[Rfam]
RNA sequence: UCUGGGACGUGAUGAUAAGAUAUAUCGAUAUGUCAUAGGCACAAGCGAUGCUGAACAACAUAUUUGCACGUCAGUCUGAUCCUAAU
Numbered sequence: 001u002c003u004g005g006g007a008c009g010u011g012a013u014g015a016u017a018a019g020a021u022a023u024a025u026c027g028a029u030a031u032g033u034c035a036u037a038g039g040c041a042c043a044a045g046c047g048a049u050g051c052u053g054a055a056c057a058a059c060a061u062a063u064u065u066g067c068a069c070g071u072c073a074g075u076c077u078g079a080u081c082c083u084a085a086u
Base pairs, nucleotide, nucleotide: 003084004083005082006081007080

Description:
Shown here is an 86-nucleotide RNA sequence from Brassica carinata, a member of the family "Small nucleolar RNA Z122". Pairs were carried over by alignment from the consensus structure, which was predicted with PFOLD. Rfam classes the family as a C/D-box small nucleolar RNA. Its family is annotated with nucleolus and RNA processing in the Gene Ontology. The organism belongs to Brassica, within Eukaryota.